[Rfam]
RNA sequence: AUAUAAGCAAAUUUUGAUUUUUAGGUUCAUUCAAUCAAUGAUGUAUGUGCUCUAUAAUAUGAACCACAUACAUCAUCGAUUGAAUGAAUCUAAAAGUCAAAAUUUGUUUAUAU
Numbered sequence: 001a002u003a004u005a006a007g008c009a010a011a012u013u014u015u016g017a018u019u020u021u022u023a024g025g026u027u028c029a030u031u032c033a034a035u036c037a038a039u040g041a042u043g044u045a046u047g048u049g050c051u052c053u054a055u056a057a058u059a060u061g062a063a064c065c066a067c068a069u070a071c072a073u074c075a076u077c078g079a080u081u082g083a084a085u086g087a088a089u090c091u092a093a094a095a096g097u098c099a100a101a102a103u104u105u106g107u108u109u110a111u112a113u
Stems, first nucleotide, its partner, number of pairs: 002112011014100011026088011038076006048066002051063001
A member of the RNA family "MIR2593 microRNA precursor family" from Medicago truncatula, 113 nucleotides long. Gene Ontology terms of the family: miRNA-mediated post-transcriptional gene silencing and RISC complex. NCBI's taxonomy places the organism under Eukaryota, Mesangiospermae, Fabales, Trifolieae, Medicago.